A member of the RNA family "MIR7504 microRNA precursor family" from Gossypium davidsonii, 126 nucleotides long. The match comes from Rfam's covariance-model search (88 bits). Its family is annotated with miRNA-mediated post-transcriptional gene silencing and RISC complex in the Gene Ontology.

RNA sequence: AAUAGGAGAAUGACAAAUUAGAUUUUCUUCUUGAUUUUCAGCUUUUUUCUACUGAAAAAAAUUCAAAUUCAACUAAAAAUGUUAAAAAUAAAGAGAGAAAAAAAUCUGAAUUGUCAUUCUUUUAUU
Numbered sequence: 001a002a003u004a005g006g007a008g009a010a011u012g013a014c015a016a017a018u019u020a021g022a023u024u025u026u027c028u029u030c031u032u033g034a035u036u037u038u039c040a041g042c043u044u045u046u047u048u049c050u051a052c053u054g055a056a057a058a059a060a061a062u063u064c065a066a067a068u069u070c071a072a073c074u075a076a077a078a079a080u081g082u083u084a085a086a087a088a089u090a091a092a093g094a095g096a097g098a099a100a101a102a103a104a105u106c107u108g109a110a111u112u113g114u115c116a117u118u119c120u121u122u123u124a125u126u
Stems, first nucleotide, its partner, number of pairs: 001126016018109005023101005028095005034089005040083002044079004